RNA sequence: UGCGCUCACCUUUACGACGGAUCGUCCGGCACGUACCUGCCGGUGAAGGAGUUGUUG
Numbered sequence: 001u002g003c004g005c006u007c008a009c010c011u012u013u014a015c016g017a018c019g020g021a022u023c024g025u026c027c028g029g030c031a032c033g034u035a036c037c038u039g040c041c042g043g044u045g046a047a048g049g050a051g052u053u054g055u056u057g
Base pairs, nucleotide, nucleotide: 009049010048011047012046013045014044026043027042028041029040030039031038
Source information: The record is a 57-nucleotide RNA from Nocardioides sp. PD653, which matches "msiK RNA" in Rfam. By type it is a cis-regulatory element. The source organism's lineage runs through Bacteria, Actinomycetes, Propionibacteriales, Nocardioidaceae and Nocardioides.